[Rfam]
RNA sequence: AUGGAGGUGAAGAUUAUUUCCCCAAAUGAUUGAAGUUGAAUAAACUGAGCGCAUUUUUGUUUCUCUUUUUGGAAACCAAGUCAAAUAUUCUAAUCCAU
Numbered sequence: 001a002u003g004g005a006g007g008u009g010a011a012g013a014u015u016a017u018u019u020c021c022c023c024a025a026a027u028g029a030u031u032g033a034a035g036u037u038g039a040a041u042a043a044a045c046u047g048a049g050c051g052c053a054u055u056u057u058u059g060u061u062u063c064u065c066u067u068u069u070u071g072g073a074a075a076c077c078a079a080g081u082c083a084a085a086u087a088u089u090c091u092a093a094u095c096c097a098u
Base pairs, nucleotide, nucleotide: 001098002097003096004095005094
Rfam assigns this 98-nucleotide RNA from Castanea mollissima to the family "Small nucleolar RNA Z103". Rfam 15.1 lists 2,844 matches to the family in 233 species. The family's RNA type in Rfam is C/D-box small nucleolar RNA. The base pairs follow the family's consensus structure, which was predicted with PFOLD.